[Rfam]
RNA sequence: ACGACCUUACUUGAACAGGAUCUGUUCUAUAGGAUCGUACCUCUGUAUCCUUUAUCACUAAUGAGACAGGAACCUAAGUCUGGUUGACGAAUCAUGACCGUGUGAUCAUAGCGUGAUUAAUGGCUUGUUCCCAGUGAAUCAUCAUGGCUGUAGAGGAUCGUUCUCCUGUCAUCUAUAUGGAAGGGGAUGGUCAUGCGGUUGUCUGACAGGCC
Numbered sequence: 001a002c003g004a005c006c007u008u009a010c011u012u013g014a015a016c017a018g019g020a021u022c023u024g025u026u027c028u029a030u031a032g033g034a035u036c037g038u039a040c041c042u043c044u045g046u047a048u049c050c051u052u053u054a055u056c057a058c059u060a061a062u063g064a065g066a067c068a069g070g071a072a073c074c075u076a077a078g079u080c081u082g083g084u085u086g087a088c089g090a091a092u093c094a095u096g097a098c099c100g101u102g103u104g105a106u107c108a109u110a111g112c113g114u115g116a117u118u119a120a121u122g123g124c125u126u127g128u129u130c131c132c133a134g135u136g137a138a139u140c141a142u143c144a145u146g147g148c149u150g151u152a153g154a155g156g157a158u159c160g161u162u163c164u165c166c167u168g169u170c171a172u173c174u175a176u177a178u179g180g181a182a183g184g185g186g187a188u189g190g191u192c193a194u195g196c197g198g199u200u201g202u203c204u205g206a207c208a209g210g211c212c
Stems, first nucleotide, its partner, number of pairs: 001038002003035001005033003013027006043069004048064002051061002078211005097199012110162004120151006127140001129138001131136001164185004169180004
The family of this 212-nucleotide RNA sequence from Salix brachista is "Plant small nucleolar RNA U3". From the family's description: Small nucleolar RNAs (snoRNAs) are involved in the processing and modification of rRNA in the nucleolus. There are two main classes of snoRNAs: the box C/D class, and the box H/ACA class. The base pairs follow the family's consensus structure, which is taken from published work. NCBI's taxonomy places the organism under Eukaryota, Spermatophyta, Magnoliopsida, Gunneridae, Salix.